About this RNA
The record is a 120-nucleotide RNA sequence from Pediococcus cellicola, which matches "Ribosomal protein L20 leader" in Rfam. Rfam classes the family as a cis-regulatory leader.
[Rfam]
RNA sequence: GAAAUUAAGCAGAGGCACCCGCUUCUCGCCUUAGUAAUUUAGAUUGCUGGGCUAAAACGAUGAAAAGACUAUGAAUGGUCUUAAUGGCGGGGUGUGUAUGCACCUCGUUUUUUUCUGCCU
Dot-bracket structure: ..........((((((....)))))).(((...(((((....)))))..)))...................................((((((((....)))))))).............
Rfam links the family to the GO term regulation of gene expression. The base pairs follow the family's consensus structure, which was predicted with CMfinder. On this family, see Zengel and Lindahl, Prog Nucleic Acid Res Mol Biol 1994: "Diverse mechanisms for regulating ribosomal protein synthesis in Escherichia coli". This family is a putative r-protein leader autoregulatory structure found in B. subtilis and other low-GC Gram-positive bacteria.